[Rfam]
Background
A member of the RNA family "chrB-a RNA" from Phytoamicus setariae, 80 nucleotides long.

RNA sequence: ACCAUGGGGCCGCGAUCGCCCCACGAGGCGUCAGCCUAAGUAUCGCGUCCACUCAACCGGCAAACGGAGGACGCGCCAUG
Numbered sequence: 001a002c003c004a005u006g007g008g009g010c011c012g013c014g015a016u017c018g019c020c021c022c023a024c025g026a027g028g029c030g031u032c033a034g035c036c037u038a039a040g041u042a043u044c045g046c047g048u049c050c051a052c053u054c055a056a057c058c059g060g061c062a063a064a065c066g067g068a069g070g071a072c073g074c075g076c077c078a079u080g
Base pairs, nucleotide, nucleotide: 005023006022007021008020009019010018045074046073047072048071049070050069

The match comes from Rfam's covariance-model search (81 bits). It is annotated as a cis-regulatory element. The base pairs follow the family's consensus structure, which is taken from published work.